Shown here is a 586-nucleotide part of an RNA from an uncultured bacterium, a member of the family "Bacterial small subunit ribosomal RNA". The family has 99 seed sequences and 42,628 matches in Rfam 15.1. The base pairs follow the family's consensus structure, which is taken from published work. For this family Rfam cites "The comparative RNA web (CRW) site: an online database of comparative sequence and structure information for ribosomal, intron, and other RNAs" (Cannone et al., BMC Bioinformatics, 2002). It is one of the family's seed sequences.
RNA sequence: UGACGGGGACCCGCACAAGCGGUGGAGUAUGUGGCUUAAUUCGAUGCAACGCGAAGAACCUUACCUGGGCUUGACAUGUAAUGAACAACAUGUGAAAGCAUGCGACUCUUCGGAGGCGUUACACAGGUGCUGCAUGGCCGUCGUCAGCUCGUGUCGUGAGAUGUUUGGUUAAGUCCAGCAACGAGCGCAACCCCUGUUGCCAGUUACCAGCACGUGAAGGUGGGGACUCUGGCGAGACUGCCCAGAUCAACUGGGAGGAAGGUGGGGACGACGUCAGGUCAGUAUGGCCCUUAUGCCCAGGGCUGCACACGUACUACAAUGCCCAGUACAGAGGGGGCCGAAGCCGCGAGGCGGAGGAAAUCCUAAAAACUGGGCCCAGUUCGGACUGUAGGCUGCAACCCGCCUACACGAAGCCGGAAUCGCUAGUAAUGGCGCAUCAGCUACGGCGCCGUGAAUACGUUCCCGGGUCUUGUACACACCGCCCGUCACAUCAUGGAAGCCGGUCGCACCCGAAGUAUCUGAAGCCAACCGCAAGGAGGCAGGGUCCUAAGGUGAGACUGGUAACUGGGAUGAAGUCGUAACAAGG
Number, nucleotide and partner (000 for none) at each position: 001u476002g475003a473004c472005g471006g000007g470008g469009a468010c467011c466012c465013g464014c000015a460016c459017a000018a000019g423020c422021g421022g420023u419024g317025g000026a315027g314028u313029a312030u311031g310032u309033g308034g306035c305036u000037u000038a000039a000040u055041u054042c053043g052044a000045u000046g000047c000048a000049a000050c000051g000052c043053g042054a041055a040056g000057a000058a000059c000060c000061u000062u000063a000064c301065c300066u299067g298068g297069g296070c295071u000072u000073g000074a000075c000076a000077u123078g122079u000080a120081a119082u118083g117084a000085a000086c000087a000088a000089c102090a101091u100092g099093u098094g000095a000096a000097a000098g093099c092100a091101u090102g089103c000104g000105a000106c115107u114108c113109u000110u000111c000112g000113g108114a107115g106116g000117c083118g082119u081120u080121a000122c078123a077124c000125a000126g290127g289128u000129g288130c287131u286132g285133c000134a000135u284136g283137g279138c278139c277140g275141u000142c273143g272144u000145c000146a000147g186148c185149u184150c183151g182152u181153g162154u161155c160156g000157u000158g000159a000160g155161a154162u153163g000164u000165u178166u177167g176168g175169u000170u000171a000172a000173g000174u000175c168176c167177a166178g165179c000180a000181a152182c151183g150184a149185g148186c147187g000188c000189a000190a000191c000192c267193c266194c265195u264196g000197u235198u234199g233200c232201c231202a230203g229204u000205u000206a000207c224208c223209a000210g000211c222212a221213c220214g000215u000216g000217a000218a000219g000220g213221u212222g211223g208224g207225g000226a000227c000228u000229c203230u202231g201232g200233c199234g198235a197236g000237a000238c258239u257240g000241c255242c254243c253244a252245g251246a000247u000248c000249a000250a000251c245252u244253g243254g242255g241256a000257g239258g238259a000260a000261g000262g000263u000264g195265g194266g193267g192268a000269c000270g000271a000272c143273g142274u000275c140276a000277g139278g138279u137280c000281a000282g000283u136284a135285u132286g131287g130288c129289c127290c126291u000292u000293a000294u000295g070296c069297c068298c067299a066300g065301g064302g000303c000304u000305g035306c034307a000308c033309a032310c031311g030312u029313a028314c027315u026316a000317c024318a000319a000320u000321g375322c374323c373324c372325a371326g370327u369328a000329c000330a000331g000332a000333g364334g363335g362336g000337g000338c357339c356340g000341a000342a000343g352344c351345c350346g000347c000348g000349a000350g345351g344352c343353g000354g000355a000356g339357g338358a000359a000360a000361u000362c335363c334364u333365a000366a000367a000368a000369a327370c326371u325372g324373g323374g322375c321376c000377c000378a000379g000380u000381u000382c413383g000384g000385a000386c000387u408388g407389u406390a405391g404392g403393c402394u000395g000396c000397a000398a000399c000400c000401c000402g393403c392404c391405u390406a389407c388408a387409c000410g000411a000412a000413g382414c000415c000416g000417g000418a000419a023420u022421c021422g020423c019424u000425a000426g000427u000428a000429a452430u451431g450432g449433c448434g447435c446436a000437u000438c000439a000440g000441c000442u000443a000444c000445g000446g435447c434448g433449c432450c431451g430452u429453g000454a000455a000456u000457a000458c000459g016460u015461u000462c000463c000464c013465g012466g011467g010468u009469c008470u007471u005472g004473u003474a000475c002476a001477c000478a000479c585480c000481g582482c000483c000484c578485g577486u000487c000488a000489c572490a571491u570492c569493a000494u567495g566496g565497a000498a000499g562500c561501c560502g559503g558504u557505c556506g000507c554508a553509c552510c551511c000512g000513a000514a000515g547516u000517a545518u544519c543520u542521g000522a000523a000524g540525c539526c538527a000528a000529c536530c535531g000532c000533a000534a000535g530536g529537a000538g526539g525540c524541a000542g520543g519544g518545u517546c000547c515548u000549a000550a000551g510552g509553u508554g507555a000556g505557a504558c503559u502560g501561g500562u499563a000564a000565c496566u495567g494568g000569g492570a491571u490572g489573a000574a000575g000576u000577c485578g484579u000580a000581a000582c481583a000584a000585g479586g000